[Rfam]
RNA sequence: ACUGAAGUUAGAGGUGCGGGUUAUCAUGAGUAAAUGGUCUGAGAACAUUGAGGUUCCGAGAUGAUCAUUGAAAGGGAUGCUUGCCGAAGUGUAAAAAUGCUCAAUCGUUUUUAUGCUGGGUCUGUACUGAAGAAGUGCAGGGCUGUCACACAAGAAAGGUGUGGAGAACUAUCUCAGCA
Number, nucleotide and partner (000 for none) at each position: 001a000002c000003u000004g000005a000006a174007g173008u000009u171010a170011g169012a000013g000014g000015u000016g084017c083018g082019g081020g080021u079022u000023a078024u077025c076026a000027u000028g000029a000030g000031u000032a000033a069034a068035u067036g066037g065038u064039c063040u000041g000042a000043g000044a000045a000046c000047a000048u000049u000050g000051a000052g000053g000054u000055u000056c000057c000058g000059a000060g000061a000062u000063g039064a038065u037066c036067a035068u034069u033070g000071a000072a000073a000074g000075g000076g025077a024078u023079g021080c020081u019082u018083g017084c016085c000086g000087a000088a117089g116090u115091g114092u113093a112094a111095a110096a109097a108098u107099g106100c000101u000102c000103a000104a000105u000106c099107g098108u097109u096110u095111u094112u093113a092114u091115g090116c089117u088118g144119g143120g000121u141122c140123u139124g138125u137126a136127c135128u134129g000130a000131a000132g000133a000134a128135g127136u126137g125138c124139a123140g122141g121142g000143c119144u118145g000146u164147c163148a162149c161150a160151c159152a000153a000154g000155a000156a000157a000158g000159g151160u150161g149162u148163g147164g146165a000166g000167a000168a000169c011170u010171a009172u000173c007174u006175c000176a000177g000178c000179a000
RNA: Lysine riboswitch aptamer